[Rfam]
RNA sequence: AUCCGGAGUAUAAGCAGUCAACGCCGCCGGCGUCGGUCAUUGCUCCCUUC
Numbered sequence: 001a002u003c004c005g006g007a008g009u010a011u012a013a014g015c016a017g018u019c020a021a022c023g024c025c026g027c028c029g030g031c032g033u034c035g036g037u038c039a040u041u042g043c044u045c046c047c048u049u050c
Base pairs, nucleotide, nucleotide: 005046006045007044008043009042010041015035019036021033022032023031024030025029
A member of the RNA family "Xanthine riboswitch aptamer (NMT1 RNA)" from Aquibium oceanicum, 50 nucleotides long. Rfam links the family to the GO term purine nucleobase binding.